[Rfam]
RNA sequence: GUCCAACAAACAGUGAUGUACUCUUUUCCAAGCACAUAUCUGACAAAUCUAUGUGGAAAAUAAUGCUGCUGAGUUUUUUGGAC
Numbered sequence: 001g002u003c004c005a006a007c008a009a010a011c012a013g014u015g016a017u018g019u020a021c022u023c024u025u026u027u028c029c030a031a032g033c034a035c036a037u038a039u040c041u042g043a044c045a046a047a048u049c050u051a052u053g054u055g056g057a058a059a060a061u062a063a064u065g066c067u068g069c070u071g072a073g074u075u076u077u078u079u080g081g082a083c
Base pairs, nucleotide, nucleotide: 001083002082003081004080005079006078008076009075010074011073
RNA: Small nucleolar RNA SNORD121A
Organism: Monodelphis domestica